[Rfam]
RNA: SAH (S-adenosyl-L-homocysteine) riboswitch aptamer
RNA sequence: GGAGUCGAGGGGUGCUGCGACGGACCAGAUCCGCCACGCUCGGCUCACGACGCUAUCAGGCAAGGGCGCCCCUCAACA
Numbered sequence: 001g002g003a004g005u006c007g008a009g010g011g012g013u014g015c016u017g018c019g020a021c022g023g024a025c026c027a028g029a030u031c032c033g034c035c036a037c038g039c040u041c042g043g044c045u046c047a048c049g050a051c052g053c054u055a056u057c058a059g060g061c062a063a064g065g066g067c068g069c070c071c072c073u074c075a076a077c078a
Base pairs, nucleotide, nucleotide: 002046003045004044005043006042007041008040021033022032023031024030